Shown here is a 294-nucleotide RNA sequence from Operophtera brumata, a member of the family "Arthropod 7SK RNA". Clan: 7SK clan. A reference for the family is Gruber et al. (2008), "Arthropod 7SK RNA", Mol Biol Evol.
RNA sequence: GGAAGUGUAUCUCCUAGUAGUGUGAUGUUACAAUACUGUACAUGAUCACUAGCGUUAGUUAGAAGAUCUGCAGCACGUGACGUCACGCGCUUUGCCAGGCACUCCCUUGUAACGUGCGCCGCGGCCGAUCGCCCGCGUGGCUGCGACGGCAAGCGGCGCGCGUUCCUAGGGCGGGCCUCACAAGAACCUCGCGGUUUUAUUAACUCGUUAGCUUAGCUCCGGUUAAAGUUCUUAGCACUUCUAUAACGUGGCGGCGAGUGAAAACUUGAAUGCCAGAUUUUUGCCAUUUUAUUG
Numbered sequence: 001g002g003a004a005g006u007g008u009a010u011c012u013c014c015u016a017g018u019a020g021u022g023u024g025a026u027g028u029u030a031c032a033a034u035a036c037u038g039u040a041c042a043u044g045a046u047c048a049c050u051a052g053c054g055u056u057a058g059u060u061a062g063a064a065g066a067u068c069u070g071c072a073g074c075a076c077g078u079g080a081c082g083u084c085a086c087g088c089g090c091u092u093u094g095c096c097a098g099g100c101a102c103u104c105c106c107u108u109g110u111a112a113c114g115u116g117c118g119c120c121g122c123g124g125c126c127g128a129u130c131g132c133c134c135g136c137g138u139g140g141c142u143g144c145g146a147c148g149g150c151a152a153g154c155g156g157c158g159c160g161c162g163u164u165c166c167u168a169g170g171g172c173g174g175g176c177c178u179c180a181c182a183a184g185a186a187c188c189u190c191g192c193g194g195u196u197u198u199a200u201u202a203a204c205u206c207g208u209u210a211g212c213u214u215a216g217c218u219c220c221g222g223u224u225a226a227a228g229u230u231c232u233u234a235g236c237a238c239u240u241c242u243a244u245a246a247c248g249u250g251g252c253g254g255c256g257a258g259u260g261a262a263a264a265c266u267u268g269a270a271u272g273c274c275a276g277a278u279u280u281u282u283g284c285c286a287u288u289u290u291a292u293u294g
Base pairs, nucleotide, nucleotide: 001242002241003240004239005238006237007236008235022086023085024084025083026082036073037072038071041070042069044068045067046066047065049062050061051060250285251284252283253280
The family has 19 seed sequences and 229 matches in Rfam 15.1.
A search with the family's covariance model found it, with a score of 45 bits.